Enterobacteria greA leader: a 123-nucleotide RNA sequence from Candidatus Symbiopectobacterium sp. PLON1. Lineage of the source: Bacteria > Gammaproteobacteria > Enterobacteriaceae > ant, tsetse, mealybug, aphid, etc. endosymbionts > Symbiopectobacterium. A search with the family's covariance model found it, with a score of 123 bits. Pairs were carried over by alignment from the consensus structure, which is taken from published work.
RNA sequence: GUCAUACUACGGCGCAAUGCGGUCUAAAGUAAACGAUGACCCUUAUGGAACUCUGGGUUAAAAUACGUAUCGAAAUGCAAAAUCGCUCCUGACCUGAAAUCUUGUUCCGGGUCAGGUUACUUU
Numbered sequence: 001g002u003c004a005u006a007c008u009a010c011g012g013c014g015c016a017a018u019g020c021g022g023u024c025u026a027a028a029g030u031a032a033a034c035g036a037u038g039a040c041c042c043u044u045a046u047g048g049a050a051c052u053c054u055g056g057g058u059u060a061a062a063a064u065a066c067g068u069a070u071c072g073a074a075a076u077g078c079a080a081a082a083u084c085g086c087u088c089c090u091g092a093c094c095u096g097a098a099a100u101c102u103u104g105u106u107c108c109g110g111g112u113c114a115g116g117u118u119a120c121u122u123u
Stems, first nucleotide, its partner, number of pairs: 001040005010035002014030002041048002057071001059069002088116009098106001